[Rfam]
The record is a 59-nucleotide RNA sequence from Herminiimonas sp., which matches "Betaproteobacteria toxic small RNA" in Rfam.
Overexpression in amino aid rich medium attenuates growth, suggesting role in repressing amino acid intake and metabolism.
Taxonomically the source falls in Herminiimonas (Bacteria, Pseudomonadati, Pseudomonadota, Oxalobacteraceae).
A search with the family's covariance model found it, with a score of 53 bits.
Nucleotides: 059
Base pairs, nucleotide, nucleotide: 008027009026010025011024012023013022014021015020032052033051034050035049036048037047038046
Number, partner (000 for none) and nucleotide at each position: 001000u002000g003000u004000c005000u006000c007000c008027u009026c010025c011024g012023u013022g014021u015020c016000u017000a018000c019000c020015g021014a022013u023012a024011u025010g026009g027008a028000u029000u030000u031000c032052a033051g034050c035049c036048c037047g038046c039000c040000c041000a042000c043000g044000a045000a046038g047037c048036g049035g050034g051033c052032u053000u054000u055000u056000u057000u058000u059000u